[Rfam]
RNA sequence: UCCUCGCCCGACAAAUCGCCAUCGAAGCUUACAAACAGAGACGGCGCCCCCUAGGAUCGCCGUCUCGGGCAUUUUGCCCAAACGAAGCUUUGGGAGAAAGUCCCCGGACACACGUUAACUUCCUUCUGGAAGCAAAAACGCCGCGGAAACGCGCCGCCAUAGAAGCACAGCGGCUGACCUCCAAAACCUGCGCUCCGGAUUCACAAUGCCCGUCCUCCCCCUCCGCCCUGCCUCGUCGCUACAUCGUUGCGGCAUCCCCCUUGCAUCCUGCCGUCUCGGCGUCGCCUUCCGUUUCCGGGACCACAUGGACGAAGAUAUGAGUCCGCGCCCGGGGUCGGUUGGAGUGAGAAACGGCUUGGGCACAAGGGGGAUCUGUUUUGAUGACGGGGUGGCCGCGUGGGGAGGUUCGAGUUGCCGGGGCGAAUUCAAGGGUCGGUCGGAGGGUCGUUCGUCGAGAUACGACAGGUAUGCGAUUGCCCAUCCCUUCGCCGGGAUGGGUUACUCGAUGGGGCUUAUUCUCGGUGCAAGG
Numbered sequence: 001u002c003c004u005c006g007c008c009c010g011a012c013a014a015a016u017c018g019c020c021a022u023c024g025a026a027g028c029u030u031a032c033a034a035a036c037a038g039a040g041a042c043g044g045c046g047c048c049c050c051c052u053a054g055g056a057u058c059g060c061c062g063u064c065u066c067g068g069g070c071a072u073u074u075u076g077c078c079c080a081a082a083c084g085a086a087g088c089u090u091u092g093g094g095a096g097a098a099a100g101u102c103c104c105c106g107g108a109c110a111c112a113c114g115u116u117a118a119c120u121u122c123c124u125u126c127u128g129g130a131a132g133c134a135a136a137a138a139c140g141c142c143g144c145g146g147a148a149a150c151g152c153g154c155c156g157c158c159a160u161a162g163a164a165g166c167a168c169a170g171c172g173g174c175u176g177a178c179c180u181c182c183a184a185a186a187c188c189u190g191c192g193c194u195c196c197g198g199a200u201u202c203a204c205a206a207u208g209c210c211c212g213u214c215c216u217c218c219c220c221c222u223c224c225g226c227c228c229u230g231c232c233u234c235g236u237c238g239c240u241a242c243a244u245c246g247u248u249g250c251g252g253c254a255u256c257c258c259c260c261u262u263g264c265a266u267c268c269u270g271c272c273g274u275c276u277c278g279g280c281g282u283c284g285c286c287u288u289c290c291g292u293u294u295c296c297g298g299g300a301c302c303a304c305a306u307g308g309a310c311g312a313a314g315a316u317a318u319g320a321g322u323c324c325g326c327g328c329c330c331g332g333g334g335u336c337g338g339u340u341g342g343a344g345u346g347a348g349a350a351a352c353g354g355c356u357u358g359g360g361c362a363c364a365a366g367g368g369g370g371a372u373c374u375g376u377u378u379u380g381a382u383g384a385c386g387g388g389g390u391g392g393c394c395g396c397g398u399g400g401g402g403a404g405g406u407u408c409g410a411g412u413u414g415c416c417g418g419g420g421c422g423a424a425u426u427c428a429a430g431g432g433u434c435g436g437u438c439g440g441a442g443g444g445u446c447g448u449u450c451g452u453c454g455a456g457a458u459a460c461g462a463c464a465g466g467u468a469u470g471c472g473a474u475u476g477c478c479c480a481u482c483c484c485u486u487c488g489c490c491g492g493g494a495u496g497g498g499u500u501a502c503u504c505g506a507u508g509g510g511g512c513u514u515a516u517u518c519u520c521g522g523u524g525c526a527a528g529g
Stems, first nucleotide, its partner, number of pairs: 002529003006525002008522004014475006022094001023092006038066009098514003102511004119132005285442001287440002295436003306428004414421002477498008

The family of this 529-nucleotide RNA from Colletotrichum musicola is "RNase MRP".
Rfam classes the family as a ribozyme.
From the family's description: RNase MRP is an enzymatically active ribonucleoprotein with two distinct roles in eukaryotes. In mitochondria it plays a direct role in the initiation of mitochondrial DNA replication. In the nucleus it is involved in precursor rRNA processing, where it cleaves the internal transcribed spacer 1 between 18S and 5.8S rRNAs. Despite distinct functions, RNase MRP has been shown to be evolutionarily related to RNase P. Like eukaryotic RNase P, RNase MRP is not catalytically active without associated protein subunits.